[Rfam]
RNA: pan motif
Nucleotides: 103
Base pairs, nucleotide, nucleotide: 002029003028004026005025006024007023008022010021011020071099072098074095075094076093077092078091080090081089082088
Number, partner (000 for none) and nucleotide at each position: 001000a002029a003028g004026u005025c006024g007023g008022u009000a010021u011020u012000c013000u014000g015000a016000u017000a018000a019000g020011a021010a022008a023007c024006u025005g026004a027000a028003c029002u030000a031000a032000a033000u034000u035000u036000u037000a038000a039000u040000u041000u042000u043000a044000a045000a046000a047000g048000u049000u050000a051000a052000u053000a054000g055000u056000u057000a058000a059000g060000u061000u062000u063000c064000c065000g066000u067000c068000a069000c070000u071099c072098g073000a074095c075094u076093u077092a078091u079000a080090u081089c082088c083000g084000u085000a086000a087000g088082g089081g090080a091078a092077u093076a094075a095074g096000a097000a098072u099071g100000g101000a102000g103000g